[Rfam]
RNA: Streptomyces sRNA 4677
RNA sequence: CGACAUGGUGCGCCACGAAGUCAAAGACUUAAAGAACCAAAAGAAAAUACCCAACCCCACCCCACCCGAUCCCGGUGGUCACCUGCGGGAGGGGCUGGUCACCCACACGGGUGAGAUUCGCCAACUGGGCUGGAUUUCGGAUGGGUUGGCAGGCAUAUGCUCACGCUGACCGACACCCCAGACAUGAGACGGCCCCCGCCGGGACGGCAAUCCCGAACGAGGGCCUGACCACCAAGGAAGGCAACACUUCCCG
Number, nucleotide and partner (000 for none) at each position: 001c000002g000003a000004c000005a000006u000007g233008g232009u231010g230011c000012g000013c000014c000015a000016c087017g086018a000019a084020g000021u000022c000023a000024a000025a000026g000027a000028c000029u000030u000031a000032a000033a000034g000035a000036a000037c000038c000039a000040a000041a000042a000043g000044a000045a000046a000047a000048u000049a000050c000051c000052c000053a000054a000055c000056c000057c000058c000059a000060c000061c000062c000063c000064a000065c000066c000067c000068g000069a000070u000071c000072c000073c000074g000075g000076u000077g000078g000079u000080c000081a000082c000083c000084u019085g000086c017087g016088g000089g000090a000091g000092g000093g000094g000095c000096u000097g000098g000099u114100c113101a112102c111103c110104c109105a000106c000107a000108c000109g104110g103111g102112u101113g100114a099115g000116a000117u000118u000119c000120g000121c000122c000123a000124a000125c000126u000127g000128g000129g164130c000131u163132g162133g161134a000135u000136u000137u000138c000139g000140g000141a000142u000143g000144g000145g000146u000147u000148g000149g000150c000151a000152g000153g000154c000155a000156u000157a000158u000159g000160c000161u133162c132163a131164c129165g000166c000167u000168g000169a000170c000171c000172g000173a000174c000175a000176c000177c000178c000179c000180a000181g000182a000183c000184a000185u000186g000187a000188g000189a000190c000191g225192g224193c223194c222195c221196c000197c219198g218199c000200c000201g214202g213203g212204a211205c000206g000207g000208c000209a000210a000211u204212c203213c202214c201215g000216a000217a000218c198219g197220a000221g195222g194223g193224c192225c191226u000227g000228a000229c000230c010231a009232c008233c007234a000235a000236g251237g250238a249239a248240g247241g000242c000243a000244a000245c000246a000247c240248u239249u238250c237251c236252c000253g000